A member of the RNA family "Purine riboswitch aptamer" from Clostridium sp. CAG:7, 96 nucleotides long. NCBI's taxonomy places the organism under Bacteria, Bacillati, Eubacteriales, Clostridiaceae, Clostridium.
RNA sequence: AAAUAAACCAAUUGUCUGAUAUGUAUAUCCUGGGGAUCGGCCCAGAGUCUCUACCAACUACCUUAAGAGUUGACUACAUAGUUUAUGUAGUCAGCU
Numbered sequence: 001a002a003a004u005a006a007a008c009c010a011a012u013u014g015u016c017u018g019a020u021a022u023g024u025a026u027a028u029c030c031u032g033g034g035g036a037u038c039g040g041c042c043c044a045g046a047g048u049c050u051c052u053a054c055c056a057a058c059u060a061c062c063u064u065a066a067g068a069g070u071u072g073a074c075u076a077c078a079u080a081g082u083u084u085a086u087g088u089a090g091u092c093a094g095c096u
Stems, first nucleotide, its partner, number of pairs: 018082001020080006030045005055072005